This 265-nucleotide sequence from Candidatus Parepulonipiscium sp. PG-Nuni2H_MBin01 belongs to the Rfam family "Bacterial large signal recognition particle RNA". The family is grouped with related families in Rfam's "SRP clan". The match comes from Rfam's covariance-model search (205 bits). Rfam describes the family as follows. The signal recognition particle (SRP) is a universally conserved ribonucleoprotein involved in the co-translational targeting of proteins to membranes. The family's consensus secondary structure is taken from published work. The source organism's lineage runs through Bacteria, Clostridia, Lachnospirales, Lachnospiraceae and Candidatus Parepulonipiscium.
RNA sequence: CUGUGCUAGCCGGGGAGGUAGCGGUGCCCUGUACUUGCAACCCGCUGUAGCAAGGGUGAUGCUUCGGCUGAGGCAGCAUCUUGUGAGGCUCUGCCUCUAGAAAGUGGUGUUGACGAUUGGGUCUCACGCAAUAGGUCUUUAUGAACCGGGUCAGGUCUUGACGGAAGCAGCCCUAAGUAAAGUCGCUUAUGUGCCGUGAGGGUGCCUGGUCUGAGCUAACUACUAGAGUAACGCUUGUAAGGUGUUGUCGAAGCCAAGUGCACAG
Numbered sequence: 001c002u003g004u005g006c007u008a009g010c011c012g013g014g015g016a017g018g019u020a021g022c023g024g025u026g027c028c029c030u031g032u033a034c035u036u037g038c039a040a041c042c043c044g045c046u047g048u049a050g051c052a053a054g055g056g057u058g059a060u061g062c063u064u065c066g067g068c069u070g071a072g073g074c075a076g077c078a079u080c081u082u083g084u085g086a087g088g089c090u091c092u093g094c095c096u097c098u099a100g101a102a103a104g105u106g107g108u109g110u111u112g113a114c115g116a117u118u119g120g121g122u123c124u125c126a127c128g129c130a131a132u133a134g135g136u137c138u139u140u141a142u143g144a145a146c147c148g149g150g151u152c153a154g155g156u157c158u159u160g161a162c163g164g165a166a167g168c169a170g171c172c173c174u175a176a177g178u179a180a181a182g183u184c185g186c187u188u189a190u191g192u193g194c195c196g197u198g199a200g201g202g203u204g205c206c207u208g209g210u211c212u213g214a215g216c217u218a219a220c221u222a223c224u225a226g227a228g229u230a231a232c233g234c235u236u237g238u239a240a241g242g243u244g245u246u247g248u249c250g251a252a253g254c255c256a257a258g259u260g261c262a263c264a265g
Base pairs, nucleotide, nucleotide: 001265002264003263004262005261006260009057010056011055012030013029014028015027017025019023034054035053036052037051038050063258064257066255067254068253069252072249073248074247075246076245078243079242080241081240082239083238084237085236086235087234092230093229096227097226098225099224100223104220105219106217107216108215115211116210117209118208119207120206121205122204123200124199125198126197127196128195129191130190132189133188134187135186136185137182138181139180140179141178142177148173149172150171151170156165157164158163